Rfam assigns this 85-nucleotide RNA from Drosophila simulans to the family "mir-980 microRNA precursor family". The organism belongs to Sophophora, within Eukaryota. The family's consensus secondary structure was predicted with RNAalifold. Rfam's curators put it in the seed alignment. Rfam links the family to the GO terms miRNA-mediated post-transcriptional gene silencing and RISC complex.

RNA sequence: AUUGUAUGUCAGUUUUUCAUUUGGCGUGGCUAGCUCACUACUUUUUUAAUAUUGCUAGCUGCCUUGUGAAGGGCUUACGUGUAAU
Dot-bracket structure: ...((((((.(((((.((((..((.....(((((...................)))))...))..)))).))))).))))))...